[Rfam]
Nucleotides: 265
Base pairs, nucleotide, nucleotide: 001265002264003263004262005261006260009057010056011055012030013029014028015027016026017025018024019023035054036053037052038051039050063258064257065256066255067254068253069252073249074248075247076246077245079244080243081242082241083240084239085238086237087236088235093229096227098225099224100223101222104220105219106217107216108215115211116210117209118208119207120206121205122204123200124199125198126197127196128195129191130190132189133188134187135186136185138181139180140179141178142177148173149172150171151170156165157164158163
Number, partner (000 for none) and nucleotide at each position: 001265u002264c003263g004262u005261g006260c007000u008000a009057g010056a011055u012030g013029g014028g015027a016026u017025g018024u019023u020000a021000g022000c023019g024018g025017u026016a027015u028014c029013c030012u031000g032000u033000a034000a035054c036053u037052c038051g039050c040000a041000a042000u043000c044000c045000g046000c047000u048000u049000a050039g051038c052037g053036a054035g055011a056010u057009u058000g059000a060000a061000u062000u063258c064257c065256u066255c067254u068253u069252g070000g071000g072000a073249g074248g075247a076246c077245g078000u079244u080243a081242a082241u083240a084239g085238g086237g087236a088235u089000a090000g091000c092000a093229g094000c095000c096227a097000g098225a099224a100223g101222u102000a103000a104220g105219u106217g107216a108215u109000g110000u111000u112000g113000a114000g115211g116210c117209u118208c119207g120206g121205g122204u123200c124199u125198u126197a127196c128195g129191c130190a131000a132189u133188g134187a135186a136185u137000c138181u139180c140179c141178a142177u143000g144000a145000a146000c147000c148173a149172u150171g151170u152000c153000a154000g155000g156165u157164c158163c159000g160000g161000a162000a163158g164157g165156a166000a167000g168000c169000a170151g171150c172149a173148u174000u175000a176000a177142g178141u179140g180139g181138a182000u183000c184000a185136a186135u187134u188133c189132a190130u191129g192000u193000g194000c195128c196127g197126u198125g199124g200123g201000g202000u203000a204122g205121c206120c207119u208118g209117a210116g211115u212000g213000g214000a215108g216107u217106u218000a219105a220104c221000u222101g223100c224099u225098u226000g227096u228000g229093u230000a231000a232000c233000g234000u235088g236087u237086u238085u239084u240083u241082a242081u243080u244079g245077c246076g247075u248074u249073c250000g251000a252069u253068g254067a255066g256065a257064g258063g259000u260006g261005c262004a263003c264002g265001a
The family of this 265-nucleotide sequence from Brochothrix thermosphacta is "Bacterial large signal recognition particle RNA". The family's RNA type in Rfam is non-coding RNA gene. The family's consensus secondary structure is taken from published work.